[Rfam]
RNA sequence: AUGGAAGAUGAUGAAAUGAAUCAGACGGAUUCCCAUUGAUCAUUCAAUGUGAUAUCAUAACCAGCAACGCCUGAGCCAU
Numbered sequence: 001a002u003g004g005a006a007g008a009u010g011a012u013g014a015a016a017u018g019a020a021u022c023a024g025a026c027g028g029a030u031u032c033c034c035a036u037u038g039a040u041c042a043u044u045c046a047a048u049g050u051g052a053u054a055u056c057a058u059a060a061c062c063a064g065c066a067a068c069g070c071c072u073g074a075g076c077c078a079u
Stems, first nucleotide, its partner, number of pairs: 001079004
Shown here is a 79-nucleotide sequence from Populus deltoides, a member of the family "Small nucleolar RNA R12". Rfam classes the family as a C/D-box small nucleolar RNA. It scores 53 bits against the family's covariance model. Gene Ontology terms of the family: RNA processing and nucleolus. The family has 9 seed sequences and 992 matches in Rfam 15.1. The base pairs follow the family's consensus structure, which was predicted with PFOLD. NCBI's taxonomy places the organism under Eukaryota, Streptophytina, Pentapetalae, Salicaceae, Populus. Rfam's curators write: snoR12 is a C/D box small nucleolar RNA, which acts as a methylation guide for 25S ribosomal RNA in plants. snoR12 has been alternatively named snoZ44 in Arabidopsis and snoZ131 in rice.